[Rfam]
RNA sequence: UUGGAGUAAACCGAAAAUCCAUUAAUAGAGUAGGCA
Number, nucleotide and partner (000 for none) at each position: 001u000002u021003g020004g019005a018006g000007u000008a000009a000010a000011c034012c033013g000014a000015a000016a000017a000018u005019c004020c003021a002022u000023u000024a000025a000026u000027a000028g000029a000030g000031u000032a000033g012034g011035c000036a000
Shown here is a 36-nucleotide sequence from Aquimarina spongiae, a member of the family "DUF805b RNA". The match comes from Rfam's covariance-model search (46 bits). Clan: DUF805 clan. By type it is a cis-regulatory element. The family's consensus secondary structure is taken from published work.